The family of this 75-nucleotide RNA sequence from Crocodylus porosus is "Mammalian CPEB3 ribozyme". A search with the family's covariance model found it, with a score of 48 bits. The family's consensus secondary structure is taken from published work.

[Rfam]
RNA sequence: AACUGCCAUAAUGACUAUAGCAGAAGUGCUUACUUCACAGCACUGUCAGAUUCUAACAAAUCUGCAAAUUCUGCU
Numbered sequence: 001a002a003c004u005g006c007c008a009u010a011a012u013g014a015c016u017a018u019a020g021c022a023g024a025a026g027u028g029c030u031u032a033c034u035u036c037a038c039a040g041c042a043c044u045g046u047c048a049g050a051u052u053c054u055a056a057c058a059a060a061u062c063u064g065c066a067a068a069u070u071c072u073g074c075u
Base pairs, nucleotide, nucleotide: 012042013041015040016039019075020074021073022072023071024070025069026038027037028036047064048063049062050061051060052059